The family of this 102-nucleotide RNA sequence from Halolactibacillus alkaliphilus is "SAM riboswitch aptamer (S box leader)".
[Rfam]
RNA sequence: UUUUUAUCAUGAGUGAACGAGAGAUCUGGCUCUUUGACUUCACGGCAACCUACAUUGGUAAGGUGCCCCGACCAGCAAAGCGAUGGCUUUGAAUGAUGAAUG
Numbered sequence: 001u002u003u004u005u006a007u008c009a010u011g012a013g014u015g016a017a018c019g020a021g022a023g024a025u026c027u028g029g030c031u032c033u034u035u036g037a038c039u040u041c042a043c044g045g046c047a048a049c050c051u052a053c054a055u056u057g058g059u060a061a062g063g064u065g066c067c068c069c070g071a072c073c074a075g076c077a078a079a080g081c082g083a084u085g086g087c088u089u090u091g092a093a094u095g096a097u098g099a100a101u102g
Stems, first nucleotide, its partner, number of pairs: 001102001003100006013043005021032003026075004044067004049063002051060003071094001076091006
Dot-bracket structure: (.((((((....(((((...(((..[[[[)))......)))))((((.(((((....))).))))))...(]]]]((((((....))))))..))))))).)
Lineage of the source: Bacteria > Bacillati > Bacillota > Bacillaceae > Halolactibacillus. The family's consensus secondary structure is taken from published work.